c-di-GMP-I-GGC riboswitch aptamer: an 80-nucleotide sequence from Hydrogenimonas sp. Pairs were carried over by alignment from the consensus structure, which is taken from published work.

RNA sequence: ACAGUAGUUGCCAAACCUGUUGUGAAGCAGGGACGGAAAGCCAUGGGUCUUUGGUUGCAAAGAUCGCCAGGUUGCCUCUU
Numbered sequence: 001a002c003a004g005u006a007g008u009u010g011c012c013a014a015a016c017c018u019g020u021u022g023u024g025a026a027g028c029a030g031g032g033a034c035g036g037a038a039a040g041c042c043a044u045g046g047g048u049c050u051u052u053g054g055u056u057g058c059a060a061a062g063a064u065c066g067c068c069a070g071g072u073u074g075c076c077u078c079u080u
Stems, first nucleotide, its partner, number of pairs: 001080001003077002011036002016031006034066001039073004044069003047064003
NCBI's taxonomy places the organism under Bacteria, Campylobacterota, Epsilonproteobacteria, Hydrogenimonadaceae, Hydrogenimonas. The match comes from Rfam's covariance-model search (61 bits).